This 59-nucleotide sequence from Salmonella enterica belongs to the Rfam family "Salmonella sRNA STnc390". The base pairs follow the family's consensus structure, which was predicted with WAR. Rfam classes the family as a small RNA. The source organism's lineage runs through Bacteria, Pseudomonadota, Salmonella enterica, Salmonella enterica subsp. enterica and Salmonella enterica subsp. enterica serovar Kentucky.
[Rfam]
RNA sequence: GGGUCUCUAUACGUUUCAUCGUAAAAGGUUGGUGUCAUUCACCAACCUUUUUUGUUAGG
Numbered sequence: 001g002g003g004u005c006u007c008u009a010u011a012c013g014u015u016u017c018a019u020c021g022u023a024a025a026a027g028g029u030u031g032g033u034g035u036c037a038u039u040c041a042c043c044a045a046c047c048u049u050u051u052u053u054g055u056u057a058g059g
Base pairs, nucleotide, nucleotide: 010023011022012021013020024050025049026048027047028046029045030044031043032042033041034040